[Rfam]
RNA: Fluoride riboswitch aptamer (crcB RNA motif)
Organism: Rhodanobacter thiooxydans
RNA sequence: UCGUCGCGAGGAGAUGGCAUUCUCCCCGAAUUGCCGCAAGGCUGAUGAUGCCUACCCGUCC
Numbered sequence: 001u002c003g004u005c006g007c008g009a010g011g012a013g014a015u016g017g018c019a020u021u022c023u024c025c026c027c028g029a030a031u032u033g034c035c036g037c038a039a040g041g042c043u044g045a046u047g048a049u050g051c052c053u054a055c056c057c058g059u060c061c
Stems, first nucleotide, its partner, number of pairs: 010025004016052006033042003
Dot-bracket structure: .........[[[[..((((((]]]].......(((....)))....)))))).........